[Rfam]
RNA: Purine riboswitch aptamer
Organism: Virgibacillus sp. MSP4-1
RNA sequence: AAAAAUGAAUAAGGGGUUUUUCAUAUAAUCGCGGGAAUAUGGCCUGCAAGUUUCUACCGAUCUACCGUAAAUAGAUCGACUAUGAAAAGCAAUGGGACGGGA
Numbered sequence: 001a002a003a004a005a006u007g008a009a010u011a012a013g014g015g016g017u018u019u020u021u022c023a024u025a026u027a028a029u030c031g032c033g034g035g036a037a038u039a040u041g042g043c044c045u046g047c048a049a050g051u052u053u054c055u056a057c058c059g060a061u062c063u064a065c066c067g068u069a070a071a072u073a074g075a076u077c078g079a080c081u082a083u084g085a086a087a088a089g090c091a092a093u094g095g096g097a098c099g100g101g102a
Base pairs, nucleotide, nucleotide: 018088019087020086021085022084023083024082025081029049031047032046033045034044035043058078059077060076061075062074063073064072